[Rfam]
This 62-nucleotide RNA sequence from Streptomyces sp. CdTB01 belongs to the Rfam family "Actino-pnp RNA". Lineage of the source: Bacteria > Bacillati > Actinomycetota > Actinomycetes > Streptomyces.

RNA sequence: GCCGGUCCUCGGUAGUGGCCCCCGGGCGAUGCGAACCCCGGGUGCUUCGAUCGAAGACCGGC
Numbered sequence: 001g002c003c004g005g006u007c008c009u010c011g012g013u014a015g016u017g018g019c020c021c022c023c024g025g026g027c028g029a030u031g032c033g034a035a036c037c038c039c040g041g042g043u044g045c046u047u048c049g050a051u052c053g054a055a056g057a058c059c060g061g062c
Base pairs, nucleotide, nucleotide: 001062002061003060004059005058006057007056009054010053011052012051013050017046018045019044021042022041023040024039025038026037028036030034